6S / SsrS RNA: a 180-nucleotide sequence from Clostridium sp. CAG:75. It is annotated as a non-coding RNA gene.
RNA sequence: UAGUACCUGGAAUGUACGACAACUUCUGAUAUUUUGAACCUACACUUUUUGAAUGGGAUUCCUAUAUAUAUGAAAGAAUGUCAUGCCUUCAUUGCAGAGGAAGAUUGCAUUUCAUAUGCGGUUGCCCACCUAGCUGAUCGCUAGGACUCAAAAUUCAGGAACCGGCAUUUUGGGUAUAUU
Number, nucleotide and partner (000 for none) at each position: 001u000002a000003g177004u176005a175006c174007c173008u172009g171010g170011a169012a168013u167014g166015u165016a000017c164018g163019a000020c000021a000022a000023c000024u000025u000026c000027u000028g000029a000030u000031a154032u153033u152034u151035u150036g149037a148038a000039c145040c144041u000042a000043c000044a000045c000046u000047u000048u000049u000050u000051g000052a000053a000054u000055g127056g126057g125058a000059u000060u000061c121062c120063u000064a000065u000066a117067u000068a000069u116070a115071u114072g113073a112074a111075a110076g000077a000078a000079u000080g000081u104082c103083a000084u000085g000086c100087c099088u098089u097090c000091a000092u000093u000094g000095c000096a000097g089098a088099g087100g086101a000102a000103g082104a081105u000106u000107g000108c000109a000110u075111u074112u073113c072114a071115u070116a069117u066118g000119c000120g062121g061122u000123u000124g000125c057126c056127c055128a000129c000130c000131u000132a000133g000134c000135u000136g000137a000138u000139c000140g000141c000142u000143a000144g040145g039146a000147c000148u037149c036150a035151a034152a033153a032154u031155u000156c000157a000158g000159g000160a000161a000162c000163c018164g017165g015166c014167a013168u012169u011170u010171u009172g008173g007174g006175u005176a004177u003178a000179u000180u000
Description
The source organism's lineage runs through Bacteria, Bacillota, Eubacteriales, Clostridiaceae and Clostridium. E. coli 6S RNA was the first non coding RNA to be sequenced, but its function was unknown until recently. It consists of 184 nucleotides that fold into an extended hairpin structure with a large single-stranded internal bulge. The 6S RNA specifically associates with RNA polymerase holoenzyme containing the sigma70 specificity factor. This interaction represses expression from a sigma70-dependent promoter during stationary phase. 6S RNA homologs have recently been identified in most bacterial genomes. Many Gram-positive species have two copies of 6S RNA. In Bacillus subtilis, both copies appear to interact with RNA polymerase holoenzyme containing the housekeeping sigma factor and be expressed during different stages of growth. In many proteobacteria, 6S RNA may be processed from a transcript encoding homologs of the E. coli YgfA protein which is a putative 5-formyltetrahydrofolate cycloligase activity. The literature on the family includes a 2000 paper in Cell by Wassarman and Storz, "6S RNA regulates E. coli RNA polymerase activity".